[Rfam]
RNA sequence: UAUCAGCAUCAAGAGUAGGAUUAAAUUCCUCUCCAACCUGCCACUCCGGCAAGGUGGAAAAAAUGAUGUGGUUAACCAACAACUAAAGGAGUUAAA
Numbered sequence: 001u002a003u004c005a006g007c008a009u010c011a012a013g014a015g016u017a018g019g020a021u022u023a024a025a026u027u028c029c030u031c032u033c034c035a036a037c038c039u040g041c042c043a044c045u046c047c048g049g050c051a052a053g054g055u056g057g058a059a060a061a062a063a064u065g066a067u068g069u070g071g072u073u074a075a076c077c078a079a080c081a082a083c084u085a086a087a088g089g090a091g092u093u094a095a096a
Stems, first nucleotide, its partner, number of pairs: 006069005015031001017030004032058003037054003040050003045091001047089001071080003